[Rfam]
RNA sequence: CUGCAGACCUUUCCAGCGAGGCUCAUCCUGUAGUGGUUCUGUCCUUUCCUGUUGUGUCUGCUAGAGACUGUUGAGGCAGUUUGAGGCCCUGCUGUGAGUCCACAUGCACGGCAGGGUUAUAGGUUAGCCUCAGACAUUA
Numbered sequence: 001c002u003g004c005a006g007a008c009c010u011u012u013c014c015a016g017c018g019a020g021g022c023u024c025a026u027c028c029u030g031u032a033g034u035g036g037u038u039c040u041g042u043c044c045u046u047u048c049c050u051g052u053u054g055u056g057u058c059u060g061c062u063a064g065a066g067a068c069u070g071u072u073g074a075g076g077c078a079g080u081u082u083g084a085g086g087c088c089c090u091g092c093u094g095u096g097a098g099u100c101c102a103c104a105u106g107c108a109c110g111g112c113a114g115g116g117u118u119a120u121a122g123g124u125u126a127g128c129c130u131c132a133g134a135c136a137u138u139a
Base pairs, nucleotide, nucleotide: 003061004060005059006058007057008056019045020044021043025038027036028035072132073131074130075129076128087116088115089114090113091112092111094109095108096107
RNA: Small nucleolar RNA SNORA9